Annotation: The record is a 117-nucleotide sequence from Marispirochaeta aestuarii, which matches "ALIL pseudoknot" in Rfam.
[Rfam]
RNA sequence: CGGAUAUUUCGUGAAGGCGGAGCUCGACCGCCCACAAAAGAGAUAGUUGGAUUUAUCGACAGAUACCGGAACAAGUAUGGAGUCGAGUCAAUCUGCAAAACGCUGCCGAUUGCUCCA
Numbered sequence: 001c002g003g004a005u006a007u008u009u010c011g012u013g014a015a016g017g018c019g020g021a022g023c024u025c026g027a028c029c030g031c032c033c034a035c036a037a038a039a040g041a042g043a044u045a046g047u048u049g050g051a052u053u054u055a056u057c058g059a060c061a062g063a064u065a066c067c068g069g070a071a072c073a074a075g076u077a078u079g080g081a082g083u084c085g086a087g088u089c090a091a092u093c094u095g096c097a098a099a100a101c102g103c104u105g106c107c108g109a110u111u112g113c114u115c116c117a
Stems, first nucleotide, its partner, number of pairs: 016032005078117005089112002092109002095106003
The base pairs follow the family's consensus structure, which is taken from published work. It scores 96 bits against the family's covariance model.